[Rfam]
RNA: SAM riboswitch aptamer (S box leader)
RNA sequence: CUCUUAUCCAGAGCAGGAGGAGGGACUGGCCCGAUGAACCCCGGCAACCGUUUUGGGCGGUGCUAACCAGCAGAAUGGAACUCCAUUCUGGCCGAUAAGAG
Numbered sequence: 001c002u003c004u005u006a007u008c009c010a011g012a013g014c015a016g017g018a019g020g021a022g023g024g025a026c027u028g029g030c031c032c033g034a035u036g037a038a039c040c041c042c043g044g045c046a047a048c049c050g051u052u053u054u055g056g057g058c059g060g061u062g063c064u065a066a067c068c069a070g071c072a073g074a075a076u077g078g079a080a081c082u083c084c085a086u087u088c089u090g091g092c093c094g095a096u097a098a099g100a101g
Stems, first nucleotide, its partner, number of pairs: 001101008013042001016041002022032003026070004043064004048060002071090006